Glycine riboswitch aptamer: a 95-nucleotide RNA sequence from Paludibacterium denitrificans. Taxonomically the source falls in Paludibacterium (Bacteria, Pseudomonadati, Pseudomonadota, Neisseriales).
[Rfam]
Nucleotides: 095
Base pairs, nucleotide, nucleotide: 006090009087010086011085012084013083020033021032022031023030035075036074037073038071039070042069043068049062050061
Number, partner (000 for none) and nucleotide at each position: 001000c002000c003000c004000g005000c006090c007000a008000a009087c010086u011085c012084u013083g014000g015000a016000g017000a018000g019000c020033g021032g022031c023030g024000c025000a026000a027000a028000c029000g030023c031022g032021u033020c034000c035075a036074c037073c038071g039070a040000a041000g042069g043068g044000g045000c046000u047000a048000a049062c050061g051000g052000c053000g054000u055000u056000a057000c058000c059000g060000c061050c062049g063000g064000a065000a066000a067000a068043u069042c070039u071038c072000a073037g074036g075035u076000g077000c078000c079000g080000g081000g082000a083013c084012a085011g086010a087009g088000g089000g090006g091000u092000g093000u094000u095000u